[Rfam]
RNA: Streptomyces sRNA 4677
RNA sequence: GGUUCGGCGGGCCACGAACUCCCCUAAAGAACCUGAGGUAAAGAACCCCCCACCCACCCUCCCUUCCCGCAUGUCACCCGUACGAGUGACCGGCUUGCGGGUGUGGGAUGCAGCCGGUUACGUUCGCCGCAACAACCCCAGACAGACGACGGCCCCCGGCCGGGACUGGCAUCCCGAACGAGGGCCUGACCGAUCAGGAAGCAGAGACCUUCCCG
Dot-bracket structure: ......(.......((...................................................))....((((.(....).))))........(((.......................)))........................(((((.((...((((......))))...)).)))))....).....(((((.......)))))..
Numbered sequence: 001g002g003u004u005c006g007g008c009g010g011g012c013c014a015c016g017a018a019c020u021c022c023c024c025u026a027a028a029g030a031a032c033c034u035g036a037g038g039u040a041a042a043g044a045a046c047c048c049c050c051c052a053c054c055c056a057c058c059c060u061c062c063c064u065u066c067c068c069g070c071a072u073g074u075c076a077c078c079c080g081u082a083c084g085a086g087u088g089a090c091c092g093g094c095u096u097g098c099g100g101g102u103g104u105g106g107g108a109u110g111c112a113g114c115c116g117g118u119u120a121c122g123u124u125c126g127c128c129g130c131a132a133c134a135a136c137c138c139c140a141g142a143c144a145g146a147c148g149a150c151g152g153c154c155c156c157c158g159g160c161c162g163g164g165a166c167u168g169g170c171a172u173c174c175c176g177a178a179c180g181a182g183g184g185c186c187u188g189a190c191c192g193a194u195c196a197g198g199a200a201g202c203a204g205a206g207a208c209c210u211u212c213c214c215g
Stems, first nucleotide, its partner, number of pairs: 007191001015069002074089004079084001098126003151186005157180002162175004197213005